This 84-nucleotide sequence from Macaca mulatta belongs to the Rfam family "mir-548 microRNA precursor family". A reference for the family is Witten et al. (2010), "Ultra-high throughput sequencing-based small RNA discovery and discrete statistical biomarker analysis in a collection of cervical tumours and matched controls", BMC Biol. The family has 11 seed sequences and 3,009 matches in Rfam 15.1. It scores 93 bits against the family's covariance model. Taxonomically the source falls in Macaca (Eukaryota, Opisthokonta, Amniota, Theria).

[Rfam]
RNA sequence: UAUUAGGUUGGUGCAAAAGUGACUGUGGUUUUUGCCAUUGAAAGUAAUGGCAAAAACCACAAUCACUUUUGCAUCAACUUAAAA
Numbered sequence: 001u002a003u004u005a006g007g008u009u010g011g012u013g014c015a016a017a018a019g020u021g022a023c024u025g026u027g028g029u030u031u032u033u034g035c036c037a038u039u040g041a042a043a044g045u046a047a048u049g050g051c052a053a054a055a056a057c058c059a060c061a062a063u064c065a066c067u068u069u070u071g072c073a074u075c076a077a078c079u080u081a082a083a084a
Base pairs, nucleotide, nucleotide: 001084003082004081005080006079007078008077009076010075011074012073013072014071015070016069017068018067019066020065021064022063024061025060026059027058028057029056030055031054032053033052034051035050036049037048038047039046040045